mir-30 microRNA precursor family: a 78-nucleotide sequence from Myripristis murdjan.
NCBI's taxonomy places the organism under Eukaryota, Teleostomi, Actinopteri, Euacanthomorphacea, Myripristis.
A search with the family's covariance model found it, with a score of 65 bits.
From the family's description: This family consists of the mammalian microRNA (miRNA) precursor mir-30a. Animal miRNAs are transcribed as ~70nt precursors and subsequently processed by the Dicer enzyme to give a ~22nt product. In this case the mature sequence comes from both the 3' (miR-30) and 5' (mir-97-6) arms of the precursor. The extents of the hairpin precursors are not generally known and are estimated based on hairpin prediction. The products are thought to have regulatory roles through complementarity to mRNA. The involvement of Dicer in miRNA processing suggests a relationship with the phenomenon of RNA interference. miRNAs are numbered based on the sequence of the mature RNA.
Rfam 15.1 lists 3,879 matches to the family in 647 species.
[Rfam]
RNA sequence: UCAGUUGAUGUAAACAUCCUACACUCAGCUGUAAUCAGUUGCAGCAGAGGCUGAGAGAAGGUUGUUUACUUUAACUGA
Numbered sequence: 001u002c003a004g005u006u007g008a009u010g011u012a013a014a015c016a017u018c019c020u021a022c023a024c025u026c027a028g029c030u031g032u033a034a035u036c037a038g039u040u041g042c043a044g045c046a047g048a049g050g051c052u053g054a055g056a057g058a059a060g061g062u063u064g065u066u067u068a069c070u071u072u073a074a075c076u077g078a
Stems, first nucleotide, its partner, number of pairs: 002077005008071001010069007018061003022057001024055007